[Rfam]
RNA: Eukaryotic large subunit ribosomal RNA, nucleotides 2775 to 3373
RNA sequence: CAGAUUGCGAAGAACUUGGUUUUCCGUGUUUGGAAAGUAAUAAAAUCGGUGAAUUAGUGCUCCGCGAAAGUCGUGUGCUAAUUUUCGUGUGUUAUAAACAAGCGGUUUGGUAUCGUCAAUGAAAUACCACUACUCUUAUUGUUUCCUUACUUACUUGAUUAAAUGGAACGUGUAUCAUUUCCUAGCCAUUAUACGGAUAUAUUUAUUAUAUCUUAUGGUAUUGGGUUUUGAUGCAAGCUUCUUGAUCAAAGUAUCACGAGUUUGUUAUAUAAUCGCAAACAAAUUCUUUAAUAAAACGAUGCAUUUAUGUAUUUUUGAUUUGAAAAUUUGGUAUAACUCCAAUUACUCAGGUAUGAUCCAAUUCAAGGACAUUGCCAGGUAGGGAGUUUGACUGGGGCGGUACAUCUCUCAAAUAAUAACGGAGGUGUCCCAAGGCCAGCUCAGUGCGGACAGAAACCACACAUAGAGCAAAAGGGCAAAUGCUGACUUGAUCUCGGUGUUCAGUACACACAGGGACAGCAAAAGCUCGGCCUAUCGAUCCUUUUGGUUUAAAGAGUUUUUAACAAGAGGUGUCAGAAAAGUUACCAUAGGGAUAACUG
Numbered sequence: 001c002a003g004a005u006u007g008c009g010a011a012g013a014a015c016u017u018g019g020u021u022u023u024c025c026g027u028g029u030u031u032g033g034a035a036a037g038u039a040a041u042a043a044a045a046u047c048g049g050u051g052a053a054u055u056a057g058u059g060c061u062c063c064g065c066g067a068a069a070g071u072c073g074u075g076u077g078c079u080a081a082u083u084u085u086c087g088u089g090u091g092u093u094a095u096a097a098a099c100a101a102g103c104g105g106u107u108u109g110g111u112a113u114c115g116u117c118a119a120u121g122a123a124a125u126a127c128c129a130c131u132a133c134u135c136u137u138a139u140u141g142u143u144u145c146c147u148u149a150c151u152u153a154c155u156u157g158a159u160u161a162a163a164u165g166g167a168a169c170g171u172g173u174a175u176c177a178u179u180u181c182c183u184a185g186c187c188a189u190u191a192u193a194c195g196g197a198u199a200u201a202u203u204u205a206u207u208a209u210a211u212c213u214u215a216u217g218g219u220a221u222u223g224g225g226u227u228u229u230g231a232u233g234c235a236a237g238c239u240u241c242u243u244g245a246u247c248a249a250a251g252u253a254u255c256a257c258g259a260g261u262u263u264g265u266u267a268u269a270u271a272a273u274c275g276c277a278a279a280c281a282a283a284u285u286c287u288u289u290a291a292u293a294a295a296a297c298g299a300u301g302c303a304u305u306u307a308u309g310u311a312u313u314u315u316u317g318a319u320u321u322g323a324a325a326a327u328u329u330g331g332u333a334u335a336a337c338u339c340c341a342a343u344u345a346c347u348c349a350g351g352u353a354u355g356a357u358c359c360a361a362u363u364c365a366a367g368g369a370c371a372u373u374g375c376c377a378g379g380u381a382g383g384g385a386g387u388u389u390g391a392c393u394g395g396g397g398c399g400g401u402a403c404a405u406c407u408c409u410c411a412a413a414u415a416a417u418a419a420c421g422g423a424g425g426u427g428u429c430c431c432a433a434g435g436c437c438a439g440c441u442c443a444g445u446g447c448g449g450a451c452a453g454a455a456a457c458c459a460c461a462c463a464u465a466g467a468g469c470a471a472a473a474g475g476g477c478a479a480a481u482g483c484u485g486a487c488u489u490g491a492u493c494u495c496g497g498u499g500u501u502c503a504g505u506a507c508a509c510a511c512a513g514g515g516a517c518a519g520c521a522a523a524a525g526c527u528c529g530g531c532c533u534a535u536c537g538a539u540c541c542u543u544u545u546g547g548u549u550u551a552a553a554g555a556g557u558u559u560u561u562a563a564c565a566a567g568a569g570g571u572g573u574c575a576g577a578a579a580a581g582u583u584a585c586c587a588u589a590g591g592g593a594u595a596a597c598u599g
Stems, first nucleotide, its partner, number of pairs: 006591001009588001012586001013583005019387004023379002026376001032150001034148002037145001039143003042139001044137002048133001056131004066114002154367005164360004172234005251354005390403001391401003404426006429530002435487001437485004441467002444462003448458002468477002492516004497511004518527003541569006549563004